This 546-nucleotide part of an RNA from Guillardia theta belongs to the Rfam family "Eukaryotic large subunit ribosomal RNA". The sequence is in the family's curated seed alignment. The base pairs follow the family's consensus structure, which is taken from published work. Lineage of the source: Eukaryota > Cryptophyceae > Pyrenomonadales > Geminigeraceae > Guillardia. The family has 88 seed sequences and 107,465 matches in Rfam 15.1.
RNA sequence: UAGACGAAGGUAAGUAAGGGAAGUCGGCAAAAUGGAUCCGUAACUUCGGGACAAGGAUUGGCUCUAAGGGUUGAGCAUCGUCGCACGUUUCCUGCGGUUCUUGAGCGCGUGUUCGAGAGACUCGAUGCUCUCGAGUCUCUCCUCGGCUCAUACCAUGCUUCUUUGCAGGAGGCUAUAGAGAGAUAUAGGAGUUCUCGGAUCUUCCUCUUCCACUGAGAACCAUCUGAACUAUGGUGCACGAUUGUGAAUAAAACAACCAGCUUAGAACUGGUACGGACAAGGGGAAUCCGACUGUUUAAUUAAAACAUAGCAUUGCGAUGGCCGGAAAUCGGUGUUGACGCAAUGUGAAUUCUGCCCAGUGCUCUGAAUGUUAAUGUGAAGAAAUUCAAGGAAGCGCGGGUAAACGGCGGGAGUAACUAUGACUCUCUUAAGGUAGCCAAAUGCCUCGUCAUCUAAUUAGUGACGCGCAUGAAUGGAUGAACGAGAUUCCCACUGUCCCUACUUACCAUCUAGCGAAACCACAGCCAAGGGAACGGGCUUGGAAGA
Numbered sequence: 001u002a003g004a005c006g007a008a009g010g011u012a013a014g015u016a017a018g019g020g021a022a023g024u025c026g027g028c029a030a031a032a033u034g035g036a037u038c039c040g041u042a043a044c045u046u047c048g049g050g051a052c053a054a055g056g057a058u059u060g061g062c063u064c065u066a067a068g069g070g071u072u073g074a075g076c077a078u079c080g081u082c083g084c085a086c087g088u089u090u091c092c093u094g095c096g097g098u099u100c101u102u103g104a105g106c107g108c109g110u111g112u113u114c115g116a117g118a119g120a121c122u123c124g125a126u127g128c129u130c131u132c133g134a135g136u137c138u139c140u141c142c143u144c145g146g147c148u149c150a151u152a153c154c155a156u157g158c159u160u161c162u163u164u165g166c167a168g169g170a171g172g173c174u175a176u177a178g179a180g181a182g183a184u185a186u187a188g189g190a191g192u193u194c195u196c197g198g199a200u201c202u203u204c205c206u207c208u209u210c211c212a213c214u215g216a217g218a219a220c221c222a223u224c225u226g227a228a229c230u231a232u233g234g235u236g237c238a239c240g241a242u243u244g245u246g247a248a249u250a251a252a253a254c255a256a257c258c259a260g261c262u263u264a265g266a267a268c269u270g271g272u273a274c275g276g277a278c279a280a281g282g283g284g285a286a287u288c289c290g291a292c293u294g295u296u297u298a299a300u301u302a303a304a305a306c307a308u309a310g311c312a313u314u315g316c317g318a319u320g321g322c323c324g325g326a327a328a329u330c331g332g333u334g335u336u337g338a339c340g341c342a343a344u345g346u347g348a349a350u351u352c353u354g355c356c357c358a359g360u361g362c363u364c365u366g367a368a369u370g371u372u373a374a375u376g377u378g379a380a381g382a383a384a385u386u387c388a389a390g391g392a393a394g395c396g397c398g399g400g401u402a403a404a405c406g407g408c409g410g411g412a413g414u415a416a417c418u419a420u421g422a423c424u425c426u427c428u429u430a431a432g433g434u435a436g437c438c439a440a441a442u443g444c445c446u447c448g449u450c451a452u453c454u455a456a457u458u459a460g461u462g463a464c465g466c467g468c469a470u471g472a473a474u475g476g477a478u479g480a481a482c483g484a485g486a487u488u489c490c491c492a493c494u495g496u497c498c499c500u501a502c503u504u505a506c507c508a509u510c511u512a513g514c515g516a517a518a519c520c521a522c523a524g525c526c527a528a529g530g531g532a533a534c535g536g537g538c539u540u541g542g543a544a545g546a
Stems, first nucleotide, its partner, number of pairs: 001512004009507008018498003035059005044049001060269002063266006069258005076246003080242004084133001087130001090127001096122004100117007270274001282491007289483002293307003310346008321333004349478004354408003359405002361401004366397001369396003377388004409427006428432001448464005525542005
Dot-bracket structure: ((((....((((((((.(((..............(((((....(....).....)))))((.(((((((((((..(((.(((((..(..(.....(((((((((((....))))))).))))....)..)..).........................................................................................................)))).))).......)))))..)))))).))(...).......(((((((((..(((.........)))..((((((((...((((.....)))).....))))))))..((((.(((..((((((.(..(((.....((((....)))).....))))))))..)))))((((((.......))))))(...)...............(((((.......)))))..........))))...)).)))))))....))).)))))))).))))............(((((........)))))....